Streptococcus sRNA SpF59 (ldcC RNA): a 51-nucleotide sequence from Faecalibacterium sp. CAG:82. By type it is a small RNA. The organism belongs to Faecalibacterium, within Bacteria.
RNA sequence: GGACCGCCCCGCGGGGGCUAAGGCCAUACGGACAGCCGGGUCCACUGCCGA
Numbered sequence: 001g002g003a004c005c006g007c008c009c010c011g012c013g014g015g016g017g018c019u020a021a022g023g024c025c026a027u028a029c030g031g032a033c034a035g036c037c038g039g040g041u042c043c044a045c046u047g048c049c050g051a
Base pairs, nucleotide, nucleotide: 001043002042003041004040005039006018007017008016009015010014
The sequence is in the family's curated seed alignment. The literature on the family includes a 2012 paper in PLoS Pathog by Mann et al., "Control of virulence by small RNAs in Streptococcus pneumoniae".